This 47-nucleotide sequence from Candidatus Moduliflexus flocculans belongs to the Rfam family "Acido-Lenti-1 RNA". A search with the family's covariance model found it, with a score of 44 bits. Lineage of the source: Bacteria > Candidatus Moduliflexia > Candidatus Moduliflexales > Candidatus Moduliflexaceae > Candidatus Moduliflexus. The base pairs follow the family's consensus structure, which is taken from published work.
RNA sequence: CCCAGGGCUUGCGCCCUGGGCUGAUAUGAUGCCGCCCUUUCAGGGCG
Numbered sequence: 001c002c003c004a005g006g007g008c009u010u011g012c013g014c015c016c017u018g019g020g021c022u023g024a025u026a027u028g029a030u031g032c033c034g035c036c037c038u039u040u041c042a043g044g045g046c047g
Stems, first nucleotide, its partner, number of pairs: 001020008034046005